[Rfam]
The family of this 532-nucleotide part of an RNA from Terfezia boudieri is "Eukaryotic small subunit ribosomal RNA". Its family is annotated with ribosome and structural constituent of ribosome in the Gene Ontology. Pairs were carried over by alignment from the consensus structure, which is taken from published work. Clan: SSU clan.

RNA sequence: UAGUUAAAAAGCUCGUAGUUGAACCUUGGAUCUGGCCAACUGGUCUGCCUCAUCGCAUGCACUGGUUUGGUUGGGUCUUUCCUUCUGACAAACUGCAUGCCCUUCACUGGGUGUGUUGGGGAACCAGGACUUUUACUUUGAAAAAAUUAGAGUGUUCAAAGCAGGCAUUGGCUCGAAUACAUUAGUAUGGAAUAAUAGAAUAGGACGUGUGGUUCUAUUUUGUUAGUUUCUAGGACUACGGUAAUGAUUAAUAGAGAUAGUUGGGGGCAUCAGUAUUCAAUUAUCAAAGAUGAAAUUUUUGGAUCGAUUAAAGACUAACUACUGCGAAAACAUUUGCCAAGAAUGUUUUUAUUAAUUAGGAAACGAAAGUUAGGAGAUCGAAGACAAUCAGAUACUGUCAUAGUCUUAACCAUAAACUAUGCCAACUAGGGAUUGGGUGAUGUUCUCUUUUGACUAGCUCAGUACCUUACAAGAAAUUAAACUCUUUGGGUUCUGGGGGGAGUAUGGUCGCAAGGCUGAAACUUAAAGGAAU
Number, nucleotide and partner (000 for none) at each position: 001u495002a494003g493004u000005u000006a000007a000008a000009a492010a000011g364012c000013u361014c360015g000016u000017a000018g356019u355020u354021g000022a000023a000024c000025c000026u000027u000028g000029g000030a000031u000032c000033u000034g000035g000036c000037c000038a000039a000040c000041u000042g000043g000044u000045c000046u000047g000048c000049c000050u000051c000052a000053u000054c000055g000056c000057a000058u000059g000060c000061a000062c000063u000064g000065g000066u000067u000068u000069g000070g000071u000072u000073g000074g000075g000076u000077c000078u000079u000080u000081c000082c000083u000084u000085c000086u000087g000088a000089c000090a000091a000092a000093c000094u000095g000096c000097a000098u000099g000100c000101c000102c000103u000104u000105c000106a000107c000108u000109g000110g000111g000112u000113g000114u000115g000116u000117u000118g000119g000120g000121g000122a000123a000124c000125c000126a000127g000128g000129a000130c000131u000132u000133u000134u000135a000136c000137u000138u000139u000140g000141a000142a000143a000144a000145a000146a000147u000148u000149a000150g000151a000152g000153u000154g000155u000156u000157c000158a000159a000160a000161g000162c000163a000164g000165g000166c000167a000168u000169u000170g000171g000172c000173u000174c000175g000176a000177a000178u000179a000180c000181a000182u000183u000184a000185g000186u000187a000188u000189g000190g000191a000192a000193u000194a000195a000196u000197a000198g000199a000200a000201u000202a000203g000204g000205a000206c000207g000208u000209g000210u000211g000212g000213u000214u000215c000216u000217a000218u000219u000220u000221u000222g000223u000224u000225a000226g000227u000228u000229u000230c000231u000232a000233g000234g000235a000236c000237u000238a000239c000240g000241g000242u000243a000244a000245u000246g000247a000248u000249u000250a000251a000252u000253a000254g350255a349256g348257a347258u345259a344260g000261u342262u341263g000264g000265g000266g338267g337268c336269a335270u000271c000272a316273g315274u000275a000276u312277u311278c000279a309280a308281u307282u306283a000284u000285c000286a000287a298288a297289g296290a000291u000292g000293a000294a000295a000296u289297u288298u287299u000300u000301g000302g000303a000304u000305c000306g282307a281308u280309u279310a000311a277312a276313g000314a000315c273316u272317a000318a000319c000320u000321a000322c000323u000324g331325c000326g000327a000328a000329a000330a000331c324332a000333u000334u000335u269336g268337c267338c266339a000340a000341g262342a261343a000344u259345g258346u000347u257348u256349u255350u254351a000352u000353u000354a020355a019356u018357u000358a000359g000360g014361a013362a000363a000364c011365g000366a000367a000368a000369g410370u409371u408372a407373g406374g405375a000376g000377a000378u000379c403380g000381a000382a000383g399384a398385c397386a396387a000388u000389c000390a000391g000392a000393u000394a000395c000396u386397g385398u384399c383400a000401u000402a000403g379404u000405c374406u373407u372408a371409a370410c369411c000412a000413u000414a000415a000416a000417c000418u000419a000420u000421g491422c490423c489424a000425a483426c000427u000428a467429g466430g465431g000432a000433u462434u461435g460436g459437g458438u457439g000440a455441u000442g454443u453444u452445c000446u000447c000448u000449u000450u000451u000452g444453a443454c442455u440456a000457g438458c437459u436460c435461a434462g433463u000464a000465c430466c429467u428468u000469a000470c000471a478472a477473g000474a000475a000476a000477u472478u471479a000480a000481a000482c000483u425484c000485u000486u000487u000488g000489g423490g422491u421492u009493c003494u002495g001496g000497g524498g523499g522500g000501a000502g000503u000504a000505u000506g517507g516508u515509c514510g000511c000512a000513a000514g509515g508516c507517u506518g000519a000520a000521a000522c499523u498524u497525a000526a000527a000528g000529g000530a000531a000532u000